[Rfam]
RNA sequence: CUAUGUUUCAGUCAAUGAUUCAUGGCAAAGGAG
Numbered sequence: 001c002u003a004u005g006u007u008u009c010a011g012u013c014a015a016u017g018a019u020u021c022a023u024g025g026c027a028a029a030g031g032a033g
Stems, first nucleotide, its partner, number of pairs: 001025005008018003
RNA: L31-Firmicutes ribosomal protein leader